[Rfam]
RNA sequence: UGACCAUGGGAUGGAGUGGCUGGGUGAUUACUUCUUCACCCAGGAAAGUCCCCGGGCCCUUGUCUGCAGAGUGCAGUCCCGGAAACGGGAGAACUUGAGGCGCAGGAUCUUGAUCGCAAUUAGCGGCGGGGCUGAGACGCGUGCGGAGCCUUUGCGGAUCCUGUGUCCUAAGAGAAUUGGCCGUUGUUUCACAGUUAUCCACUCGGCUCACUAUAGUGGGCUAACAGAACGGGGCUUACGAUCUCAUGGUU
Numbered sequence: 001u002g003a004c005c006a007u008g009g010g011a012u013g014g015a016g017u018g019g020c021u022g023g024g025u026g027a028u029u030a031c032u033u034c035u036u037c038a039c040c041c042a043g044g045a046a047a048g049u050c051c052c053c054g055g056g057c058c059c060u061u062g063u064c065u066g067c068a069g070a071g072u073g074c075a076g077u078c079c080c081g082g083a084a085a086c087g088g089g090a091g092a093a094c095u096u097g098a099g100g101c102g103c104a105g106g107a108u109c110u111u112g113a114u115c116g117c118a119a120u121u122a123g124c125g126g127c128g129g130g131g132c133u134g135a136g137a138c139g140c141g142u143g144c145g146g147a148g149c150c151u152u153u154g155c156g157g158a159u160c161c162u163g164u165g166u167c168c169u170a171a172g173a174g175a176a177u178u179g180g181c182c183g184u185u186g187u188u189u190c191a192c193a194g195u196u197a198u199c200c201a202c203u204c205g206g207c208u209c210a211c212u213a214u215a216g217u218g219g220g221c222u223a224a225c226a227g228a229a230c231g232g233g234g235c236u237u238a239c240g241a242u243c244u245c246a247u248g249g250u251u
Stems, first nucleotide, its partner, number of pairs: 002251010014204006021042007046237003050234004065075004077090005102164006114157004129151004139144001206221006
Dot-bracket structure: .((((((((((..((((((.(((((((........)))))))...[[[.[[[[...........((((...)))).(((((....)))))...........((((((......((((...........((((......(....)...))))..)))).))))))..................................)))))).((((((....)))))).........]]]]]]]....))))))))))
RNA: RNase MRP
Organism: Manihot esculenta